[Rfam]
RNA sequence: CAAACGGCCCUUUUCAGGGCCAACAAAAUAAAAAAAUAUAAUAUA
Numbered sequence: 001c002a003a004a005c006g007g008c009c010c011u012u013u014u015c016a017g018g019g020c021c022a023a024c025a026a027a028a029u030a031a032a033a034a035a036a037u038a039u040a041a042u043a044u045a
Stems, first nucleotide, its partner, number of pairs: 006021006
RNA: Histone 3' UTR stem-loop
Organism: Beta vulgaris